[Rfam]
RNA sequence: AACCUUUCUCGGCUUUUUGGCUAAGAUCAAGUGUAGUUUCUGUUCUAAUCAGUUUAAUAUCUGAUCUGUGGUCCAUCGGGCCACAACGAUAUUAAAUUAUUUUUUUCGUGCCAUGGAGGUGUCAAACGGGUAAGCGUGCUUGCAUGACCCUUCAGCGUUGCCUCCGUAUUGCACUGCUGUAGAGCGCGGUGCAACCCUC
Numbered sequence: 001a002a003c004c005u006u007u008c009u010c011g012g013c014u015u016u017u018u019g020g021c022u023a024a025g026a027u028c029a030a031g032u033g034u035a036g037u038u039u040c041u042g043u044u045c046u047a048a049u050c051a052g053u054u055u056a057a058u059a060u061c062u063g064a065u066c067u068g069u070g071g072u073c074c075a076u077c078g079g080g081c082c083a084c085a086a087c088g089a090u091a092u093u094a095a096a097u098u099a100u101u102u103u104u105u106u107c108g109u110g111c112c113a114u115g116g117a118g119g120u121g122u123c124a125a126a127c128g129g130g131u132a133a134g135c136g137u138g139c140u141u142g143c144a145u146g147a148c149c150c151u152u153c154a155g156c157g158u159u160g161c162c163u164c165c166g167u168a169u170u171g172c173a174c175u176g177c178u179g180u181a182g183a184g185c186g187c188g189g190u191g192c193a194a195c196c197c198u199c
Base pairs, nucleotide, nucleotide: 007026008025009024011022012021013020014019048065049064050063051062052061068084069083070082071081072080073079074078116152117151118150119149121148122147123146124145131142132141133140134139155192156191157190158189159188160187162184163183164182166180167179
RNA: U2 spliceosomal RNA